Rfam assigns this 93-nucleotide RNA sequence from Nicotiana sylvestris to the family "MIR6152 microRNA precursor family". Gene Ontology terms of the family: miRNA-mediated post-transcriptional gene silencing and RISC complex.

RNA sequence: UAGACAGAUUUUUGUAUUCGAGUGUAUUCACGGUGUAAAAUAGGGGAUUACACUGUUUUUAAACGGAAAGUGAAUCAAUUAAAAUAUACUCCU
Numbered sequence: 001u002a003g004a005c006a007g008a009u010u011u012u013u014g015u016a017u018u019c020g021a022g023u024g025u026a027u028u029c030a031c032g033g034u035g036u037a038a039a040a041u042a043g044g045g046g047a048u049u050a051c052a053c054u055g056u057u058u059u060u061a062a063a064c065g066g067a068a069a070g071u072g073a074a075u076c077a078a079u080u081a082a083a084a085u086a087u088a089c090u091c092c093u
Stems, first nucleotide, its partner, number of pairs: 003091002013086003017082002020080002023077002026075006034065003037059007
Record summary:
The organism belongs to Nicotiana, within Eukaryota. The match comes from Rfam's covariance-model search (81 bits). The base pairs follow the family's consensus structure, which was predicted with RNAalifold.